[Rfam]
RNA sequence: CCCGUAUGAAAGACAUGGGUAGUGAGAUGGGUAAGUAGGAUCUACAUCUCACUACCUUGUCUUUCAUGCGGAC
Numbered sequence: 001c002c003c004g005u006a007u008g009a010a011a012g013a014c015a016u017g018g019g020u021a022g023u024g025a026g027a028u029g030g031g032u033a034a035g036u037a038g039g040a041u042c043u044a045c046a047u048c049u050c051a052c053u054a055c056c057u058u059g060u061c062u063u064u065c066a067u068g069c070g071g072a073c
Stems, first nucleotide, its partner, number of pairs: 008065008017057003021053009
RNA: mir-71 microRNA precursor family
Organism: Rhodnius prolixus